[Rfam]
RNA sequence: AAUAUAGGAACGAAGCCUAAAUUCGCCACAUCGUGUGGCAACAACUUCGUAACCAACAUUGAGGGGG
Numbered sequence: 001a002a003u004a005u006a007g008g009a010a011c012g013a014a015g016c017c018u019a020a021a022u023u024c025g026c027c028a029c030a031u032c033g034u035g036u037g038g039c040a041a042c043a044a045c046u047u048c049g050u051a052a053c054c055a056a057c058a059u060u061g062a063g064g065g066g067g
Base pairs, nucleotide, nucleotide: 011049012048013047014046015045025039026038027037028036029035053067054066057063
The record is a 67-nucleotide RNA from Bacillus sp. FJAT-50079, which matches "Bacillaceae-1 RNA" in Rfam. Rfam classes the family as a small RNA. The base pairs follow the family's consensus structure, which is taken from published work. The organism belongs to Bacillus, within Bacteria.